[Rfam]
RNA sequence: CCUGUCUACGCAGGUCGGGAUGUGAUUCCCACCGCCGCACGGAUCCGGGAAUUGAACCACACA
Numbered sequence: 001c002c003u004g005u006c007u008a009c010g011c012a013g014g015u016c017g018g019g020a021u022g023u024g025a026u027u028c029c030c031a032c033c034g035c036c037g038c039a040c041g042g043a044u045c046c047g048g049g050a051a052u053u054g055a056a057c058c059a060c061a062c063a
Base pairs, nucleotide, nucleotide: 001014002013003012004011005010017058018057024053025052026051027050028049029048030047
RNA: eL15-Euryarchaeota ribosomal protein leader